[Rfam]
RNA sequence: AAGGAGGUGAUGAUCCUUUCCCCAUAUGAUCGACGUUGAUUCAAACUGUGCUAUUUCAUCAUCUUCAAAUUUAUGGAGAUGUAAAGCCAGGUUUCUGAUCCUU
Numbered sequence: 001a002a003g004g005a006g007g008u009g010a011u012g013a014u015c016c017u018u019u020c021c022c023c024a025u026a027u028g029a030u031c032g033a034c035g036u037u038g039a040u041u042c043a044a045a046c047u048g049u050g051c052u053a054u055u056u057c058a059u060c061a062u063c064u065u066c067a068a069a070u071u072u073a074u075g076g077a078g079a080u081g082u083a084a085a086g087c088c089a090g091g092u093u094u095c096u097g098a099u100c101c102u103u
Stems, first nucleotide, its partner, number of pairs: 001103005

The family of this 103-nucleotide RNA from Protea cynaroides is "Small nucleolar RNA Z103". Its family is annotated with RNA processing and nucleolus in the Gene Ontology. On this family, see Chen et al., Nucleic Acids Res 2003: "The high diversity of snoRNAs in plants: identification and comparative study of 120 snoRNA genes from Oryza sativa". Rfam classes the family as a C/D-box small nucleolar RNA. Lineage of the source: Eukaryota > Streptophytina > Euphyllophyta > Proteales > Protea.